[Rfam]
Rfam assigns this 152-nucleotide RNA sequence from Protea cynaroides to the family "Small nucleolar RNA snoR2/U65". Lineage of the source: Eukaryota > Streptophytina > Proteales > Proteaceae > Protea. Clan: SNORA65 clan. Its family is annotated with RNA processing and nucleolus in the Gene Ontology. A reference for the family is Shaw et al. (1998), "Localization and processing from a polycistronic precursor of novel snoRNAs in maize", J Cell Sci.
RNA sequence: GGUCUGAUGCCACGUCGCCGGUAGUUAGUAAUAAUUUGGCAAUGACCGACGAUGCUAUGAUCGGACCAAUAUUAACUUUCGUAUGCUGAUAGGAAUCUGUGGAUCUGAUCAUAUCCCAUUCAUCCACGGAGCCGAUUUCUGCGAUUACAUUU
Number, nucleotide and partner (000 for none) at each position: 001g000002g066003u065004c064005u063006g062007a061008u060009g058010c000011c000012a000013c054014g053015u052016c051017g050018c000019c000020g047021g046022u045023a000024g040025u039026u038027a037028g036029u000030a000031a000032u000033a000034a000035u000036u028037u027038g026039g025040c024041a000042a000043u000044g000045a022046c021047c020048g000049a000050c017051g016052a015053u014054g013055c000056u000057a000058u009059g000060a008061u007062c006063g005064g004065a003066c002067c000068a000069a000070u000071a000072u000073u000074a000075a000076c000077u000078u000079u144080c143081g142082u141083a140084u000085g000086c000087u000088g000089a000090u000091a000092g133093g132094a000095a000096u000097c129098u128099g127100u000101g125102g124103a123104u122105c000106u000107g000108a000109u000110c000111a000112u000113a000114u000115c000116c000117c000118a000119u000120u000121c000122a104123u103124c102125c101126a000127c099128g098129g097130a000131g000132c093133c092134g000135a000136u000137u000138u000139c000140u083141g082142c081143g080144a079145u000146u000147a000148c000149a000150u000151u000152u000